[Rfam]
RNA sequence: GGUCAUGAGUGUCAGCGCCAAGCCCCGGCUCGCUGACCGGCAACCCUCCACCGCGGUGGGGUGCCCCGGGUGAGGACCAGGCGGUGCGCCACAGGACGGCGCAACGCAAGCGCGGAGA
Numbered sequence: 001g002g003u004c005a006u007g008a009g010u011g012u013c014a015g016c017g018c019c020a021a022g023c024c025c026c027g028g029c030u031c032g033c034u035g036a037c038c039g040g041c042a043a044c045c046c047u048c049c050a051c052c053g054c055g056g057u058g059g060g061g062u063g064c065c066c067c068g069g070g071u072g073a074g075g076a077c078c079a080g081g082c083g084g085u086g087c088g089c090c091a092c093a094g095g096a097c098g099g100c101g102c103a104a105c106g107c108a109a110g111c112g113c114g115g116a117g118a
Stems, first nucleotide, its partner, number of pairs: 001078004009038001011037006021030002039065003044061003048056002081107003085103006
RNA: SAM (S-adenosyl methionine) riboswitch aptamer
Organism: Oryzihumus leptocrescens